[Rfam]
RNA: Small nucleolar RNA R44/J54/Z268 family
RNA sequence: GGUGCAAGUGAUGACACACAGACAGGGACAUCAGCACUCUUUAUGAGGAUGAUGAUUUGUCGAUGGGAAUCUCUCUGAUGCAUC
Numbered sequence: 001g002g003u004g005c006a007a008g009u010g011a012u013g014a015c016a017c018a019c020a021g022a023c024a025g026g027g028a029c030a031u032c033a034g035c036a037c038u039c040u041u042u043a044u045g046a047g048g049a050u051g052a053u054g055a056u057u058u059g060u061c062g063a064u065g066g067g068a069a070u071c072u073c074u075c076u077g078a079u080g081c082a083u084c
Stems, first nucleotide, its partner, number of pairs: 002083005